[Rfam]
Small nucleolar RNA SNORD58: a 72-nucleotide sequence from Chaetops frenatus. A reference for the family is Kiss-Laszlo et al. (1996), "Site-specific ribose methylation of preribosomal RNA: a novel function for small nucleolar RNAs", Cell. A search with the family's covariance model found it, with a score of 70 bits. Clan: SNORD58 clan. Rfam's curators write: snoRNA U58 is found in introns 1, 3 and 6 of the ribosomal protein RPL17 gene in humans. NCBI's taxonomy places the organism under Eukaryota, Chordata, Dinosauria, Neognathae, Chaetops. Rfam links the family to the GO terms RNA processing and nucleolus.
RNA sequence: UUGCUGUGAUGACUAUCUUAGGACACCUUUGGAAUACCUAUGAAGAAAACUGAUAAGUUCUUUCUGAGCAAC
Numbered sequence: 001u002u003g004c005u006g007u008g009a010u011g012a013c014u015a016u017c018u019u020a021g022g023a024c025a026c027c028u029u030u031g032g033a034a035u036a037c038c039u040a041u042g043a044a045g046a047a048a049a050c051u052g053a054u055a056a057g058u059u060c061u062u063u064c065u066g067a068g069c070a071a072c
Base pairs, nucleotide, nucleotide: 001071002070003069004068